[Rfam]
RNA sequence: CCUUAAAGUGCUCUAGCAGCACAUCAUGGUUUGCACACUCUAAUAAAGAUGCGAAUCAUUAUUUGCUGCUUUAGAAAUUUAAGG
Numbered sequence: 001c002c003u004u005a006a007a008g009u010g011c012u013c014u015a016g017c018a019g020c021a022c023a024u025c026a027u028g029g030u031u032u033g034c035a036c037a038c039u040c041u042a043a044u045a046a047a048g049a050u051g052c053g054a055a056u057c058a059u060u061a062u063u064u065g066c067u068g069c070u071u072u073a074g075a076a077a078u079u080u081a082a083g084g
Stems, first nucleotide, its partner, number of pairs: 001084006015070007023062002026059010

Shown here is an 84-nucleotide RNA from Buteo japonicus, a member of the family "mir-15 microRNA precursor family".
The family's consensus secondary structure was predicted with RNAalifold.
Lineage of the source: Eukaryota > Euteleostomi > Archosauria > Accipitrinae > Buteo.
This family represents the related mir-15a and mir-15b sequences. In humans miR-15a and miR-16 are clustered within 0.5 kb at 13q14.
A reference for the family is Calin et al. (2002), "Frequent deletions and down-regulation of micro- RNA genes miR15 and miR16 at 13q14 in chronic lymphocytic leukemia", Proc Natl Acad Sci U S A.